Shown here is a 115-nucleotide RNA from Polaribacter sp. MED152, a member of the family "Bacteroidete tryptophan peptide leader RNA". Gene Ontology terms of the family: regulation of gene expression and S-adenosylmethionine metabolic process. It is annotated as a cis-regulatory leader. Lineage of the source: Bacteria > Bacteroidota > Flavobacteriia > Flavobacteriaceae > Polaribacter.
[Rfam]
RNA sequence: AUUUUUACCUUUGUAACAUAAUGAAAAACAGUAUAAACAUAUCUUGGUGGUGGAACUCUCUUAACUAAUAAGUGAGUUUAUACCUGUAUGUAAAAAUAUAUUAAAAAGGCUUAUC
Number, nucleotide and partner (000 for none) at each position: 001a000002u000003u000004u000005u000006u000007a000008c000009c000010u000011u000012u000013g000014u000015a000016a000017c000018a000019u000020a000021a000022u000023g000024a000025a000026a000027a000028a000029c000030a000031g000032u000033a000034u000035a000036a000037a091038c090039a089040u088041a087042u086043c000044u000045u000046g084047g083048u082049g081050g000051u000052g000053g079054a078055a000056c076057u075058c074059u000060c000061u071062u070063a069064a000065c000066u000067a000068a000069u063070a062071a061072g000073u000074g058075a057076g056077u000078u054079u053080a000081u049082a048083c047084c046085u000086g042087u041088a040089u039090g038091u037092a000093a000094a000095a000096a000097u000098a000099u000100a000101u000102u000103a000104a000105a000106a000107a000108g000109g000110c000111u000112u000113a000114u000115c000